[Rfam]
RNA sequence: UGAGUAGGUCGGACGGUCGCGGGGACAAAGGCGAAAGCCUGUCCAUGAGGAAAGUCCGGGCUCCGCAGGGCAAGGAUAACGGGUAACGCCCGCCGAAGGCGACUUCAGGAAAAGUGCAACAGAGAUAUACCGCCUCGUUUUCGAGGUAAGGGUGGAAAGGCGAGGUAAGAGCUCACCCGGCGGCGUGUGAAAGCGUCCGCCGCUGUAAACUCUAUUCGGAGCAACACCGGUAUGGGAGCAAUAGGCCGGCCCGGCUGCUCCCGAGGUGGCUGGAGCGCACCGGCAACGGUGCGCGUAGAUAGAUGACCGUAUGACAACAGAACCCGGCUUAUAGACCUGCUCACUCA
Number, nucleotide and partner (000 for none) at each position: 001u343002g342003a341004g340005u339006a338007g337008g336009u335010c334011g332012g000013a310014c309015g308016g307017u306018c305019g000020c047021g046022g000023g044024g043025a042026c041027a040028a000029a000030g000031g000032c000033g000034a000035a000036a000037g000038c000039c000040u027041g026042u025043c024044c023045a000046u021047g020048a000049g000050g000051a000052a330053a329054g328055u000056c327057c326058g325059g324060g323061c221062u220063c219064c218065g000066c000067a000068g000069g252070g251071c000072a000073a000074g217075g216076a215077u214078a213079a000080c092081g091082g090083g089084u000085a000086a000087c000088g000089c083090c082091c081092g080093c000094c108095g106096a105097a104098g103099g000100c000101g000102a000103c098104u097105u096106c095107a000108g094109g212110a211111a000112a000113a000114g210115u209116g206117c205118a204119a000120c000121a000122g000123a000124g000125a000126u000127a000128u000129a000130c151131c150132g147133c146134c145135u144136c143137g142138u000139u000140u000141u000142c137143g136144a135145g134146g133147u132148a000149a000150g131151g130152g000153u000154g000155g000156a000157a000158a000159g177160g176161c000162g174163a173164g172165g000166u000167a000168a000169g000170a000171g000172c164173u163174c162175a000176c160177c159178c000179g198180g197181c000182g000183g194184c193185g000186u191187g000188u000189g000190a000191a186192a000193g184194c183195g000196u000197c180198c179199g000200c000201c000202g000203c000204u118205g117206u116207a000208a000209a115210c114211u110212c109213u078214a077215u076216u075217c074218g064219g063220a062221g061222c000223a000224a000225c268226a267227c266228c265229g000230g000231u000232a000233u000234g262235g261236g260237a259238g258239c257240a000241a000242u000243a000244g000245g255246c254247c253248g000249g000250c000251c070252c069253g247254g246255c245256u000257g239258c238259u237260c236261c235262c234263g000264a000265g228266g227267u226268g225269g000270c000271u000272g000273g000274a000275g294276c293277g292278c291279a290280c289281c288282g287283g000284c000285a000286a000287c282288g281289g280290u279291g278292c277293g276294c275295g000296u000297a000298g000299a000300u000301a000302g000303a000304u000305g018306a017307c016308c015309g014310u013311a000312u000313g000314a000315c000316a000317a000318c000319a000320g000321a000322a000323c060324c059325c058326g057327g056328c054329u053330u052331a000332u011333a000334g010335a009336c008337c007338u006339g005340c004341u003342c002343a001344c000345u000346c000347a000
RNA: Bacterial RNase P class A